[Rfam]
RNA: Bacterial large subunit ribosomal RNA, nucleotides 857 to 1306
RNA sequence: CUCCGCGAAAUCUAUUUAGGUAGAGCGUCGGGUGAAUACUACUGGGGGUAGAGCACUGGAUGGGCUAGGGGUCCUUACCGGAUUACCAAACCUAACCAAACUCCGAAUACCAGUAAGUACUGCCCGGCAGACACACAGUGGGUGCUAACGUCCAUUGUGGAGAGGGAAACAACCCUGACCUACAGCUAAGGCCCCCAAUUCGUGGCUAAGUGGGAAAGGAUGUGAGAAUCCCAAAACAACCAGGAGGUUGGCUUAGAAGCAGCCAUCCUUUAAAGAAAGCGUAACAGCUCACUGGUCUAAACAAGGGUUCUUGCGCCGAAGAUGUACCGGGGCUCAAGCCACGAGCCGAAGCUUAGGGUUCAUGCAGCGAUGCAUGAGCGGUAGCGGAGCGUUCCGUAAGCCUGCGAAGGGACAGCCGUGAGGCAUCCUGGAGGUAUCGGAAGUGCGAAU
Numbered sequence: 001c002u003c004c005g006c007g008a009a010a011u012c013u014a015u016u017u018a019g020g021u022a023g024a025g026c027g028u029c030g031g032g033u034g035a036a037u038a039c040u041a042c043u044g045g046g047g048g049u050a051g052a053g054c055a056c057u058g059g060a061u062g063g064g065c066u067a068g069g070g071g072u073c074c075u076u077a078c079c080g081g082a083u084u085a086c087c088a089a090a091c092c093u094a095a096c097c098a099a100a101c102u103c104c105g106a107a108u109a110c111c112a113g114u115a116a117g118u119a120c121u122g123c124c125c126g127g128c129a130g131a132c133a134c135a136c137a138g139u140g141g142g143u144g145c146u147a148a149c150g151u152c153c154a155u156u157g158u159g160g161a162g163a164g165g166g167a168a169a170c171a172a173c174c175c176u177g178a179c180c181u182a183c184a185g186c187u188a189a190g191g192c193c194c195c196c197a198a199u200u201c202g203u204g205g206c207u208a209a210g211u212g213g214g215a216a217a218g219g220a221u222g223u224g225a226g227a228a229u230c231c232c233a234a235a236a237c238a239a240c241c242a243g244g245a246g247g248u249u250g251g252c253u254u255a256g257a258a259g260c261a262g263c264c265a266u267c268c269u270u271u272a273a274a275g276a277a278a279g280c281g282u283a284a285c286a287g288c289u290c291a292c293u294g295g296u297c298u299a300a301a302c303a304a305g306g307g308u309u310c311u312u313g314c315g316c317c318g319a320a321g322a323u324g325u326a327c328c329g330g331g332g333c334u335c336a337a338g339c340c341a342c343g344a345g346c347c348g349a350a351g352c353u354u355a356g357g358g359u360u361c362a363u364g365c366a367g368c369g370a371u372g373c374a375u376g377a378g379c380g381g382u383a384g385c386g387g388a389g390c391g392u393u394c395c396g397u398a399a400g401c402c403u404g405c406g407a408a409g410g411g412a413c414a415g416c417c418g419u420g421a422g423g424c425a426u427c428c429u430g431g432a433g434g435u436a437u438c439g440g441a442a443g444u445g446c447g448a449a450u
Stems, first nucleotide, its partner, number of pairs: 001389006011024005026130001027128007036121001040115006051104001052102002057098003061094004068087002070084005134159010164175003179357004184353003190347003199344001201343006218317002222314010239296005245269003250264003270274001275290001279288002358379008390445001392442005400435003409429004415424003